Shown here is a 90-nucleotide RNA from Rhodobacteraceae bacterium CCMM004, a member of the family "Glycine riboswitch aptamer". Pairs were carried over by alignment from the consensus structure. This family represents the bacterial glycine riboswitch. The source organism's lineage runs through Bacteria, Pseudomonadota, Alphaproteobacteria, Rhodobacterales and Paracoccaceae.
[Rfam]
RNA sequence: CGCCCCCGUGCGGGAGAGGUCGCGCAUCGCCGCGGCGCCGAAGGAGCAACCGCCCCGGAAUCUCUCAGGCAAAUGGACCGCACGCGACGA
Numbered sequence: 001c002g003c004c005c006c007c008g009u010g011c012g013g014g015a016g017a018g019g020u021c022g023c024g025c026a027u028c029g030c031c032g033c034g035g036c037g038c039c040g041a042a043g044g045a046g047c048a049a050c051c052g053c054c055c056c057g058g059a060a061u062c063u064c065u066c067a068g069g070c071a072a073a074u075g076g077a078c079c080g081c082a083c084g085c086g087a088c089g090a
Stems, first nucleotide, its partner, number of pairs: 007084007020035004037070003040066002044064003050058002